[Rfam]
Rfam assigns this 158-nucleotide RNA from Streptomyces sp. TSRI0281 to the family "c-di-AMP riboswitch aptamer (ydaO/yuaA leader)".
The pairing is the family consensus, mapped onto this sequence.

RNA sequence: AAUUCACAUCCACCCACAUACGCGUGGCAGGAGCGGGGGACCCAGGUAAGCCGCCGGCCCGGAGAGAUCCGGACCGGCUCGGGGUGAAGUCGCAGCCAGCGACCGGGCAUCUCCAGUCCGAACCCGACAGCUCACCUCGUAGGCGCCGGAGAGGAAUU
Number, nucleotide and partner (000 for none) at each position: 001a000002a000003u032004u031005c030006a000007c000008a000009u000010c000011c000012a000013c000014c000015c000016a000017c000018a000019u000020a000021c000022g000023c000024g000025u000026g000027g000028c000029a000030g005031g004032a003033g140034c139035g138036g137037g136038g135039g000040a000041c000042c000043c081044a000045g000046g000047u000048a000049a000050g000051c000052c000053g000054c000055c000056g000057g000058c000059c000060c000061g000062g000063a000064g000065a000066g000067a000068u000069c000070c000071g000072g000073a000074c000075c000076g000077g000078c000079u000080c000081g043082g125083g124084g123085u000086g000087a000088a000089g000090u102091c101092g100093c099094a000095g000096c000097c000098a000099g093100c092101g091102a090103c000104c000105g119106g118107g117108c116109a000110u000111c000112u000113c000114c000115a000116g108117u107118c106119c105120g000121a000122a000123c084124c083125c082126g000127a000128c000129a000130g000131c000132u000133c000134a000135c038136c037137u036138c035139g034140u033141a000142g000143g000144c000145g000146c000147c000148g000149g000150a000151g000152a000153g000154g000155a000156a000157u000158u000
The organism belongs to Streptomyces, within Bacteria. Its family is annotated with regulation of gene expression and cyclic-di-AMP binding in the Gene Ontology. This family represents a conserved RNA structure found upstream of the ydaO and yuaA genes in Bacillus subtilis and related genes in other bacteria.